[Rfam]
RNA: chrB-b RNA
Organism: Sphingomonas sp. LH128
RNA sequence: ACGGGCACGCGCGGACGCCCGUUCAGACGGCAACGUCCAAGUCCGC
Numbered sequence: 001a002c003g004g005g006c007a008c009g010c011g012c013g014g015a016c017g018c019c020c021g022u023u024c025a026g027a028c029g030g031c032a033a034c035g036u037c038c039a040a041g042u043c044c045g046c
Base pairs, nucleotide, nucleotide: 001022002021003020004019005018006017011046012045013044014043015042026037027036028035029034